Shown here is an 80-nucleotide sequence from Caenorhabditis brenneri, a member of the family "SmY spliceosomal RNA". The organism belongs to Caenorhabditis, within Eukaryota. The literature on the family includes a 2007 paper in RNA by MacMorris et al., "A novel family of C. elegans snRNPs contains proteins associated with trans-splicing". The base pairs follow the family's consensus structure, which is taken from published work. The family's RNA type in Rfam is spliceosomal small nuclear RNA.
RNA sequence: CUAUUGAAUAACUCACUUUCAGGGCCUUGCAUAAGACCCAGUGAACAAUUUUUGGAGACCCUUCUCUUCGGAUUAGGGUG
Numbered sequence: 001c002u003a004u005u006g007a008a009u010a011a012c013u014c015a016c017u018u019u020c021a022g023g024g025c026c027u028u029g030c031a032u033a034a035g036a037c038c039c040a041g042u043g044a045a046c047a048a049u050u051u052u053u054g055g056a057g058a059c060c061c062u063u064c065u066c067u068u069c070g071g072a073u074u075a076g077g078g079u080g
Stems, first nucleotide, its partner, number of pairs: 022039003026035003058079005065072002
Dot-bracket structure: .....................(((.(((....))).)))..................(((((..((....))..))))).